Source information: This 159-nucleotide RNA from Aspergillus turcosus belongs to the Rfam family "A. fumigatus sRNA Afu_254". Pairs were carried over by alignment from the consensus structure, which was predicted with WAR. Rfam classes the family as a small RNA.
[Rfam]
RNA sequence: AUACCAACUACAAUAACUCAAAGCCUAUCUUCAAGCAACCCUUCUUUCACCACCAACUCAAUCAAGAUGACUCCCUGCUCCUGCAACAGCUGCGCCUGCGCCACCGACUGCAACGGCUGCAAGUGCGUCUCUUGCGGAGUAAGUAUCUCAGACAUUCGC
Numbered sequence: 001a002u003a004c005c006a007a008c009u010a011c012a013a014u015a016a017c018u019c020a021a022a023g024c025c026u027a028u029c030u031u032c033a034a035g036c037a038a039c040c041c042u043u044c045u046u047u048c049a050c051c052a053c054c055a056a057c058u059c060a061a062u063c064a065a066g067a068u069g070a071c072u073c074c075c076u077g078c079u080c081c082u083g084c085a086a087c088a089g090c091u092g093c094g095c096c097u098g099c100g101c102c103a104c105c106g107a108c109u110g111c112a113a114c115g116g117c118u119g120c121a122a123g124u125g126c127g128u129c130u131c132u133u134g135c136g137g138a139g140u141a142a143g144u145a146u147c148u149c150a151g152a153c154a155u156u157c158g159c
Stems, first nucleotide, its partner, number of pairs: 076106002079103001089099002110135003119126002